RNA: S4-Flavobacteria ribosomal protein leader
RNA sequence: AGUUAUCGAAGGAUAGUAAGCCUUAAUUCAUAACU
Numbered sequence: 001a002g003u004u005a006u007c008g009a010a011g012g013a014u015a016g017u018a019a020g021c022c023u024u025a026a027u028u029c030a031u032a033a034c035u
Stems, first nucleotide, its partner, number of pairs: 001035006008029001009024004